[Rfam]
RNA sequence: GUGUUCUCUUAAGGUUGACACAAUGCCUUAAGAGGCUAACACAAAAGGGUAAGGAAAAUCUCCAUAAAACCCAGAAAAGAGCUUUAAAACUCCUCUCUAGAUCUAUCUGCAGUCAUAGCU
Numbered sequence: 001g002u003g004u005u006c007u008c009u010u011a012a013g014g015u016u017g018a019c020a021c022a023a024u025g026c027c028u029u030a031a032g033a034g035g036c037u038a039a040c041a042c043a044a045a046a047g048g049g050u051a052a053g054g055a056a057a058a059u060c061u062c063c064a065u066a067a068a069a070c071c072c073a074g075a076a077a078a079g080a081g082c083u084u085u086a087a088a089a090c091u092c093c094u095c096u097c098u099a100g101a102u103c104u105a106u107c108u109g110c111a112g113u114c115a116u117a118g119c120u
Base pairs, nucleotide, nucleotide: 002051003050004049005048006047007046009044010043014040015039016038017037019035021032060112061111063109064108071100073098074097075096077094079092080091081090083089084088
This 120-nucleotide sequence from Castor canadensis belongs to the Rfam family "Small nucleolar RNA SNORA26".
The literature on the family includes a 2001 paper in EMBO J by Huttenhofer et al., "RNomics: an experimental approach that identifies 201 candidates for novel, small, non-messenger RNAs in mouse".
The snoRNA HBI-6 belong to the H/ACA family of snoRNAs, guiding the pseudouridylation of position U4522 if the 28S rRNA. HBI-6 is the human orthologue of mouse MBI-6 snoRNA.
Taxonomically the source falls in Castor (Eukaryota, Opisthokonta, Teleostomi, Sarcopterygii).